[Rfam]
RNA sequence: GGCGAUAAACGGUGCCGUGCAAUAGGCACAGCGGACCCGGGGGCAGUACCCGGCGGCUCCACCAUAAAUCGCGAAAUUUCGCGGUUUAAGACGGGGCCGAACCAGGAUCGACGUGUGUUGAAAGACGGCAACUUUCGCCCGGCCUGAAUGCGCCGUAAAACCGUUCACAACUCAUAAGAGCCAACGAUAACGAAGCUCUUGCGAUUGCUGCGUAA
Numbered sequence: 001g002g003c004g005a006u007a008a009a010c011g012g013u014g015c016c017g018u019g020c021a022a023u024a025g026g027c028a029c030a031g032c033g034g035a036c037c038c039g040g041g042g043g044c045a046g047u048a049c050c051c052g053g054c055g056g057c058u059c060c061a062c063c064a065u066a067a068a069u070c071g072c073g074a075a076a077u078u079u080c081g082c083g084g085u086u087u088a089a090g091a092c093g094g095g096g097c098c099g100a101a102c103c104a105g106g107a108u109c110g111a112c113g114u115g116u117g118u119u120g121a122a123a124g125a126c127g128g129c130a131a132c133u134u135u136c137g138c139c140c141g142g143c144c145u146g147a148a149u150g151c152g153c154c155g156u157a158a159a160a161c162c163g164u165u166c167a168c169a170a171c172u173c174a175u176a177a178g179a180g181c182c183a184a185c186g187a188u189a190a191c192g193a194a195g196c197u198c199u200u201g202c203g204a205u206u207g208c209u210g211c212g213u214a215a
Base pairs, nucleotide, nucleotide: 001139002138003137004136005135015128016127017126018125027117028116029115031114032113033112037053038052039051040050041049054099055098056097057096058095059094060093140155141154142153143152

The record is a 215-nucleotide RNA from Parasphingopyxis marina, which matches "permuted transfer-messenger RNA" in Rfam. The family's consensus secondary structure is taken from published work. The organism belongs to Parasphingopyxis, within Bacteria. Rfam's curators write: Bacterial tmRNA, also known as 10Sa RNA or SsrA, is named for its dual tRNA and mRNA-like properties.